[Rfam]
Shown here is a 118-nucleotide RNA from Acer yangbiense, a member of the family "Small nucleolar RNA U19". The family's RNA type in Rfam is H/ACA-box small nucleolar RNA. A search with the family's covariance model found it, with a score of 54 bits. The family's consensus secondary structure was predicted with WAR.

RNA sequence: AUCGGCUUAGUUAAAAGGCAAAUAGUAAUAGAUCGUAGUUGGUCUUCUCGGGCUUUUUGAGGGGACAAUAUGAUUUUUCAUUUUCGUUAAAUUGUCCCUCAAGCAGCUGGAGACAUUU
Numbered sequence: 001a002u003c004g005g006c007u008u009a010g011u012u013a014a015a016a017g018g019c020a021a022a023u024a025g026u027a028a029u030a031g032a033u034c035g036u037a038g039u040u041g042g043u044c045u046u047c048u049c050g051g052g053c054u055u056u057u058u059g060a061g062g063g064g065a066c067a068a069u070a071u072g073a074u075u076u077u078u079c080a081u082u083u084u085c086g087u088u089a090a091a092u093u094g095u096c097c098c099u100c101a102a103g104c105a106g107c108u109g110g111a112g113a114c115a116u117u118u
Stems, first nucleotide, its partner, number of pairs: 004019001006017003031044005047112003051108003056103004061099009
Dot-bracket structure: ...(.(((......))).)...........(((((....)))))..(((.(((..((((.(((((((((.....................)))))))))))))..))).)))......